[Rfam]
RNA sequence: AAACCGCCCCUUAAGUAUUGACUUUUUUGCAGUUUUGGCCCCCCAGACCAGUUUUGACAGAGUAAAUGCACACAUGGACGCCACGUGUGUAUAUAUUUUUUAUUUUUUAAUAAUUAAAAAAUAAAUUAUAUAUAUAUGUGUGGCAUCCACGUCACUUGGUCAGAAUUGGCAUGGGGGGCAAAAACUACAAAAAAGUCAAUACUUAGGGAGCGGUUU
Numbered sequence: 001a002a003a004c005c006g007c008c009c010c011u012u013a014a015g016u017a018u019u020g021a022c023u024u025u026u027u028u029g030c031a032g033u034u035u036u037g038g039c040c041c042c043c044c045a046g047a048c049c050a051g052u053u054u055u056g057a058c059a060g061a062g063u064a065a066a067u068g069c070a071c072a073c074a075u076g077g078a079c080g081c082c083a084c085g086u087g088u089g090u091a092u093a094u095a096u097u098u099u100u101u102a103u104u105u106u107u108u109a110a111u112a113a114u115u116a117a118a119a120a121a122u123a124a125a126u127u128a129u130a131u132a133u134a135u136a137u138g139u140g141u142g143g144c145a146u147c148c149a150c151g152u153c154a155c156u157u158g159g160u161c162a163g164a165a166u167u168g169g170c171a172u173g174g175g176g177g178g179c180a181a182a183a184a185c186u187a188c189a190a191a192a193a194a195g196u197c198a199a200u201a202c203u204u205a206g207g208g209a210g211c212g213g214u215u216u
Stems, first nucleotide, its partner, number of pairs: 001216002004213004012205018031186006038179008072152002075149004080144017